[Rfam]
The family of this 53-nucleotide RNA from Mycolicibacterium fallax is "L31-Actinobacteria ribosomal protein leader". The family's RNA type in Rfam is cis-regulatory leader.
RNA sequence: CCGGUUCCGGUUCACGCCCAUAAACCCAGGUCUGUUCGGGCGACCCGGCGGCC
Numbered sequence: 001c002c003g004g005u006u007c008c009g010g011u012u013c014a015c016g017c018c019c020a021u022a023a024a025c026c027c028a029g030g031u032c033u034g035u036u037c038g039g040g041c042g043a044c045c046c047g048g049c050g051g052c053c
Stems, first nucleotide, its partner, number of pairs: 003053003007048004015042005022035001